[Rfam]
RNA sequence: GGAUGAUGUAGAGGCGCAGUCAACAAGAGUACCUGCGAGGAGCCGGCCCGUGAUGAAUUGCCGGGAAAGGGUUGACUGCCGAAGCCGGGAUGCUUGCCAGGCAUUCCGGUUGGGCGUAAAGCGAAAAGCGUUACGACUGUCACCAGGCCGUUAUUGGUGGAGCGCUAUCUCAUCC
Numbered sequence: 001g002g003a004u005g006a007u008g009u010a011g012a013g014g015c016g017c018a019g020u021c022a023a024c025a026a027g028a029g030u031a032c033c034u035g036c037g038a039g040g041a042g043c044c045g046g047c048c049c050g051u052g053a054u055g056a057a058u059u060g061c062c063g064g065g066a067a068a069g070g071g072u073u074g075a076c077u078g079c080c081g082a083a084g085c086c087g088g089g090a091u092g093c094u095u096g097c098c099a100g101g102c103a104u105u106c107c108g109g110u111u112g113g114g115c116g117u118a119a120a121g122c123g124a125a126a127a128g129c130g131u132u133a134c135g136a137c138u139g140u141c142a143c144c145a146g147g148c149c150g151u152u153a154u155u156g157g158u159g160g161a162g163c164g165c166u167a168u169c170u171c172a173u174c175c
Stems, first nucleotide, its partner, number of pairs: 006170001008168004016079009032064002035061004083111012112138002115135005121129002140160007
Rfam assigns this 175-nucleotide sequence from Allolucifera butyrica to the family "Lysine riboswitch aptamer". From the family's description: Riboswitches are metabolite binding domains within certain messenger RNAs that serve as precision sensors for their corresponding targets. Allosteric rearrangement of mRNA structure is mediated by ligand binding, and this results in modulation of gene expression. Lineage of the source: Bacteria > Bacillota > Veillonellales > Veillonellaceae > Allolucifera. The match comes from Rfam's covariance-model search (115 bits). For this family Rfam cites "Regulation of lysine biosynthesis and transport genes in bacteria: yet another RNA riboswitch?" (Rodionov et al., Nucleic Acids Res, 2003).